[Rfam]
RNA sequence: GAGUCAUUGACAAGACAUAAAUAUGUAUAGAAGAGGAUGACAAAAAAAUUAGGCUCAAUUGCAUUAUGUUGAGGCCC
Number, nucleotide and partner (000 for none) at each position: 001g077002a000003g075004u074005c071006a070007u000008u068009g067010a000011c000012a000013a000014g000015a000016c000017a000018u000019a000020a000021a000022u000023a000024u000025g000026u000027a000028u000029a000030g000031a000032a000033g000034a000035g000036g000037a000038u000039g000040a000041c000042a000043a000044a000045a000046a000047a000048a000049u000050u000051a000052g000053g000054c000055u000056c000057a000058a000059u000060u000061g000062c000063a000064u000065u000066a000067u009068g008069u000070u006071g005072a000073g000074g004075c003076c000077c001
Rfam assigns this 77-nucleotide sequence from Trichechus manatus to the family "Small nucleolar RNA SNORD115". It scores 51 bits against the family's covariance model. Taxonomically the source falls in Trichechus manatus (Eukaryota, Bilateria, Teleostomi, Theria). For this family Rfam cites "Identification of brain-specific and imprinted small nucleolar RNA genes exhibiting an unusual genomic organization" (Cavaille et al., Proc Natl Acad Sci U S A, 2000).